Rfam assigns this 131-nucleotide sequence from Halanaerobium sp. DL-01 to the family "c-di-AMP riboswitch aptamer (ydaO/yuaA leader)".
From the family's description: This family represents a conserved RNA structure found upstream of the ydaO and yuaA genes in Bacillus subtilis and related genes in other bacteria.
It scores 81 bits against the family's covariance model.
RNA sequence: AUAUAUCUGUUGUCCAAUCUCAUUUUAUGAGAGCGGAGGACCCACCUUUUUGGGGCGAAUCUAAUUUAAUUAGAGGAAGACCUUUACUUCCAGCCCGACAGCUAACUCCGUAGACUUAUUAAAGGACAGGC
Numbered sequence: 001a002u003a004u005a006u007c008u009g010u011u012g013u014c015c016a017a018u019c020u021c022a023u024u025u026u027a028u029g030a031g032a033g034c035g036g037a038g039g040a041c042c043c044a045c046c047u048u049u050u051u052g053g054g055g056c057g058a059a060u061c062u063a064a065u066u067u068a069a070u071u072a073g074a075g076g077a078a079g080a081c082c083u084u085u086a087c088u089u090c091c092a093g094c095c096c097g098a099c100a101g102c103u104a105a106c107u108c109c110g111u112a113g114a115c116u117u118a119u120u121a122a123a124g125g126a127c128a129g130g131c
Stems, first nucleotide, its partner, number of pairs: 012115003018032003033111006043052002053096003061073004076090004
Dot-bracket structure: ...........(((...(((.........)))((((((....((......))(((.....((((.....))))..((((.......))))...))).........)))))).)))................